[Rfam]
RNA: Small nucleolar RNA snR60/Z15/Z230/Z193/J17
RNA sequence: CUGGGAACAAUGAUGACCGUAUAGUUCAGCUGAUAAGUCUGUGCUGAAUAUCAAAUUUAGUCUUUCACCCCUAUCUGACAAUUCCCAC
Numbered sequence: 001c002u003g004g005g006a007a008c009a010a011u012g013a014u015g016a017c018c019g020u021a022u023a024g025u026u027c028a029g030c031u032g033a034u035a036a037g038u039c040u041g042u043g044c045u046g047a048a049u050a051u052c053a054a055a056u057u058u059a060g061u062c063u064u065u066c067a068c069c070c071c072u073a074u075c076u077g078a079c080a081a082u083u084c085c086c087a088c
Stems, first nucleotide, its partner, number of pairs: 004085004